Shown here is a 125-nucleotide RNA sequence from Clostridium putrefaciens, a member of the family "Ribosomal protein L20 leader". On this family, see Zengel and Lindahl, Prog Nucleic Acid Res Mol Biol 1994: "Diverse mechanisms for regulating ribosomal protein synthesis in Escherichia coli". The base pairs follow the family's consensus structure, which was predicted with CMfinder. The source organism's lineage runs through Bacteria, Bacillati, Bacillota, Clostridiaceae and Clostridium. By type it is a cis-regulatory leader.

[Rfam]
RNA sequence: GUAGUAAAGAAGAAACAGCCGUUUCUCACCUUGCAGCAUUGCUAGUAAGGUAAUUAAACUUAACUUUAAGAAAUAAAGUUGAUUUGUUAAUUGAGACGGCAUUUAUGCCGUCUUUUUUAGAUUUU
Numbered sequence: 001g002u003a004g005u006a007a008a009g010a011a012g013a014a015a016c017a018g019c020c021g022u023u024u025c026u027c028a029c030c031u032u033g034c035a036g037c038a039u040u041g042c043u044a045g046u047a048a049g050g051u052a053a054u055u056a057a058a059c060u061u062a063a064c065u066u067u068a069a070g071a072a073a074u075a076a077a078g079u080u081g082a083u084u085u086g087u088u089a090a091u092u093g094a095g096a097c098g099g100c101a102u103u104u105a106u107g108c109c110g111u112c113u114u115u116u117u118u119a120g121a122u123u124u125u
Stems, first nucleotide, its partner, number of pairs: 011026006028051003033046002036042002094113008
Dot-bracket structure: ..........((((((....)))))).(((..((.((...))..))..)))..........................................((((((((....))))))))............